RNA sequence: AUAAUGAUACGUCCGCAUGGUGCGGUUCUGCCCACAGGAAUGGGAAUGGUUGAGAUACCAACGG
Numbered sequence: 001a002u003a004a005u006g007a008u009a010c011g012u013c014c015g016c017a018u019g020g021u022g023c024g025g026u027u028c029u030g031c032c033c034a035c036a037g038g039a040a041u042g043g044g045a046a047u048g049g050u051u052g053a054g055a056u057a058c059c060a061a062c063g064g
Stems, first nucleotide, its partner, number of pairs: 012061001013025004026046003047060003